[Rfam]
RNA sequence: CUAAUGUUUCUUGCUUAAAUGAGUAUUCCAUGGAAGUGAUUCACUCACAUAUAGACCUAAUAAUAUGAGUGGGUUUCUCCUCUUUGAUGAGAUGCUCAUUUGAGCAAGCAAUGUUUG
Numbered sequence: 001c002u003a004a005u006g007u008u009u010c011u012u013g014c015u016u017a018a019a020u021g022a023g024u025a026u027u028c029c030a031u032g033g034a035a036g037u038g039a040u041u042c043a044c045u046c047a048c049a050u051a052u053a054g055a056c057c058u059a060a061u062a063a064u065a066u067g068a069g070u071g072g073g074u075u076u077c078u079c080c081u082c083u084u085u086g087a088u089g090a091g092a093u094g095c096u097c098a099u100u101u102g103a104g105c106a107a108g109c110a111a112u113g114u115u116u117g
Stems, first nucleotide, its partner, number of pairs: 004114005010108018029089002
Dot-bracket structure: ...(((((.((((((((((((((((((.((.........................................................)).)))))))))))))))))).)))))...
RNA: MIR828 microRNA precursor family
Organism: Eutrema salsugineum